[Rfam]
Shown here is a 274-nucleotide RNA from Colletotrichum trifolii, a member of the family "A. fumigatus sRNA Afu_309". The base pairs follow the family's consensus structure, which was predicted with WAR. Rfam 15.1 lists 663 matches to the family in 646 species. It is annotated as a small RNA.

RNA sequence: UCCUUCUUCACAAACACGGGCCUGUGCCCAGAGCUCCUUUGCCCGUCCGCGGGUCAGAGUUGAGCUCUGCGGCAGCUCGAUCGUCCUAGGAGCCAUCAAAUUCUUAUGGUGUCAAUCUUCCGAUCGACAGGUCCAAGAGUAACCGGUCUGGAGGAAGCAACGUUCGCCUCGGCUUGAGCGUUGUGGAAUCUUGUACUGGGGACGUCAUAUUCCUACCCCUUCGCCGAGAUCGUCGAUCCAUGAGGUUAGGGAAAACCAUGACUUGCCCACAUAC
Numbered sequence: 001u002c003c004u005u006c007u008u009c010a011c012a013a014a015c016a017c018g019g020g021c022c023u024g025u026g027c028c029c030a031g032a033g034c035u036c037c038u039u040u041g042c043c044c045g046u047c048c049g050c051g052g053g054u055c056a057g058a059g060u061u062g063a064g065c066u067c068u069g070c071g072g073c074a075g076c077u078c079g080a081u082c083g084u085c086c087u088a089g090g091a092g093c094c095a096u097c098a099a100a101u102u103c104u105u106a107u108g109g110u111g112u113c114a115a116u117c118u119u120c121c122g123a124u125c126g127a128c129a130g131g132u133c134c135a136a137g138a139g140u141a142a143c144c145g146g147u148c149u150g151g152a153g154g155a156a157g158c159a160a161c162g163u164u165c166g167c168c169u170c171g172g173c174u175u176g177a178g179c180g181u182u183g184u185g186g187a188a189u190c191u192u193g194u195a196c197u198g199g200g201g202a203c204g205u206c207a208u209a210u211u212c213c214u215a216c217c218c219c220u221u222c223g224c225c226g227a228g229a230u231c232g233u234c235g236a237u238c239c240a241u242g243a244g245g246u247u248a249g250g251g252a253a254a255a256c257c258a259u260g261a262c263u264u265g266c267c268c269a270c271a272u273a274c
Stems, first nucleotide, its partner, number of pairs: 018134008026073003029069003033065004037059005042053004081126001083124003089113002092110003146196002153191002158183009167172001201267001203265001204262005217251004223246003228238004